[Rfam]
A member of the RNA family "transfer-messenger RNA" from Streptococcus sp. sy004, 347 nucleotides long.
NCBI's taxonomy places the organism under Bacteria, Bacillati, Lactobacillales, Streptococcaceae, Streptococcus.
A search with the family's covariance model found it, with a score of 188 bits.
Rfam links the family to the GO term RNA catabolic process.
Bacterial tmRNA, also known as 10Sa RNA or SsrA, is named for its dual tRNA and mRNA-like properties.

RNA sequence: GGGGUCGUUACGGAUUCGACAGGCAUUAUGAGGCAUAUUUUGCAACUCGAGUGACGGCGUAACCGUUCAGUUAAAUAUAACUGCAAAAAAUAACACUUCUUACGCUUUAGCUGCUUAAAAACCAGCGGGCGUGACCGCUAUGAAAUGGCUUGUGUUUCAUUAGAGGUCUUAUUUUAACAAGCUACGUUUGGUUAGGGUCUAACUAACCAAAAAGAGAUGAUUAGACUCGCAAAAGAUAGGCUUGAGCCUUGUGUCAAUUUUUUGUUAAAUGAAGACAAGGCCUAUGGUUGUAGACAAAUAUGUUGGCAGGUGUUUGGACGUGGGUUCGACUCCCACCGGCUCCAUAA
Numbered sequence: 001g002g003g004g005u006c007g008u009u010a011c012g013g014a015u016u017c018g019a020c021a022g023g024c025a026u027u028a029u030g031a032g033g034c035a036u037a038u039u040u041u042g043c044a045a046c047u048c049g050a051g052u053g054a055c056g057g058c059g060u061a062a063c064c065g066u067u068c069a070g071u072u073a074a075a076u077a078u079a080a081c082u083g084c085a086a087a088a089a090a091u092a093a094c095a096c097u098u099c100u101u102a103c104g105c106u107u108u109a110g111c112u113g114c115u116u117a118a119a120a121a122c123c124a125g126c127g128g129g130c131g132u133g134a135c136c137g138c139u140a141u142g143a144a145a146u147g148g149c150u151u152g153u154g155u156u157u158c159a160u161u162a163g164a165g166g167u168c169u170u171a172u173u174u175u176a177a178c179a180a181g182c183u184a185c186g187u188u189u190g191g192u193u194a195g196g197g198u199c200u201a202a203c204u205a206a207c208c209a210a211a212a213a214g215a216g217a218u219g220a221u222u223a224g225a226c227u228c229g230c231a232a233a234a235g236a237u238a239g240g241c242u243u244g245a246g247c248c249u250u251g252u253g254u255c256a257a258u259u260u261u262u263u264g265u266u267a268a269a270u271g272a273a274g275a276c277a278a279g280g281c282c283u284a285u286g287g288u289u290g291u292a293g294a295c296a297a298a299u300a301u302g303u304u305g306g307c308a309g310g311u312g313u314u315u316g317g318a319c320g321u322g323g324g325u326u327c328g329a330c331u332c333c334c335a336c337c338g339g340c341u342c343c344a345u346a347a
Base pairs, nucleotide, nucleotide: 001343002342003341004340005339006338007337020316021315022314023313024312025311026310027309032304033303034302035301036300037299038298039297040296043290044289045288046287047286048059049058053067054066055065056064107129108128110126111125112124113123133168134167135166136165138163140160141159142158143157144156145155146154148182149181150180151179152178153177187211188210189209190208191207192206193205194204195203197227200224202222229265230264231263232262233261234260235259236258237257239255240254241253244282247279252274320336321335322334323333324332